[Rfam]
RNA sequence: UGGCCCGAACAGGGACCUGAAAACGAGGGAUCACUGUGAGUAAGAGACGCGAGAGGACUGGUCCGACCGCUAACAAAAUAAAAGAAUUAAAAACUGAUCACCGCGGCGAACCUAACGACACGCGCCGCGUCAGGAUGAAGGUAAUGUGAGGCGUCCGAAAUGGACAAGAAUUAAGUCAGCAUCAAUAUAUGAUGUAGCAAAGUAAAAGAGGCUUUAAAGAUACGAGGAAGUAAAGUUUAAAGGUAAUGACUUGUUUAAAUUUUUUGAUUUUGUAAAAGAUACUUUGCGCU
Numbered sequence: 001u002g003g004c005c006c007g008a009a010c011a012g013g014g015a016c017c018u019g020a021a022a023a024c025g026a027g028g029g030a031u032c033a034c035u036g037u038g039a040g041u042a043a044g045a046g047a048c049g050c051g052a053g054a055g056g057a058c059u060g061g062u063c064c065g066a067c068c069g070c071u072a073a074c075a076a077a078a079u080a081a082a083a084g085a086a087u088u089a090a091a092a093a094c095u096g097a098u099c100a101c102c103g104c105g106g107c108g109a110a111c112c113u114a115a116c117g118a119c120a121c122g123c124g125c126c127g128c129g130u131c132a133g134g135a136u137g138a139a140g141g142u143a144a145u146g147u148g149a150g151g152c153g154u155c156c157g158a159a160a161u162g163g164a165c166a167a168g169a170a171u172u173a174a175g176u177c178a179g180c181a182u183c184a185a186u187a188u189a190u191g192a193u194g195u196a197g198c199a200a201a202g203u204a205a206a207a208g209a210g211g212c213u214u215u216a217a218a219g220a221u222a223c224g225a226g227g228a229a230g231u232a233a234a235g236u237u238u239a240a241a242g243g244u245a246a247u248g249a250c251u252u253g254u255u256u257a258a259a260u261u262u263u264u265u266g267a268u269u270u271u272g273u274a275a276a277a278g279a280u281a282c283u284u285u286g287c288g289c290u
Stems, first nucleotide, its partner, number of pairs: 004029003034049001035047001037045001095141001097136001098134002102129007151165001154164004172216003175212003223266005229261003234252002237249003275290001278287001
RNA: Mason-Pfizer monkey virus packaging signal